[Rfam]
RNA: permuted transfer-messenger RNA
RNA sequence: GAGCAUCAACGCCGACUACCGCAGCUGAUGACUGCAGGCCGGGGGUUCAAUUCCCCCCGGCGCCCCUGAAACCUCAGCGCAAGCCGGCCGAAAGGCCUACAAUGGUGCAUCUUUCCUGGGGCCGACCUGGUUUCGACGUGGGUGCGGAGGCGGGAUAGUGCAUGUCGAGGACCAGCCACCUCGUAAAUCCAUCUGGAAACAAACUAACUGCCAACGACGAAUCGUUCGCACUCGCCGCUUAA
Numbered sequence: 001g002a003g004c005a006u007c008a009a010c011g012c013c014g015a016c017u018a019c020c021g022c023a024g025c026u027g028a029u030g031a032c033u034g035c036a037g038g039c040c041g042g043g044g045g046u047u048c049a050a051u052u053c054c055c056c057c058c059g060g061c062g063c064c065c066c067u068g069a070a071a072c073c074u075c076a077g078c079g080c081a082a083g084c085c086g087g088c089c090g091a092a093a094g095g096c097c098u099a100c101a102a103u104g105g106u107g108c109a110u111c112u113u114u115c116c117u118g119g120g121g122c123c124g125a126c127c128u129g130g131u132u133u134c135g136a137c138g139u140g141g142g143u144g145c146g147g148a149g150g151c152g153g154g155a156u157a158g159u160g161c162a163u164g165u166c167g168a169g170g171a172c173c174a175g176c177c178a179c180c181u182c183g184u185a186a187a188u189c190c191a192u193c194u195g196g197a198a199a200c201a202a203a204c205u206a207a208c209u210g211c212c213a214a215c216g217a218c219g220a221a222u223c224g225u226u227c228g229c230a231c232u233c234g235c236c237g238c239u240u241a242a
Base pairs, nucleotide, nucleotide: 001163003161004160005159019153020152021151022150031143032142033141037137041057042056043055044054045053058124059123060122061121063119064118164179165178167176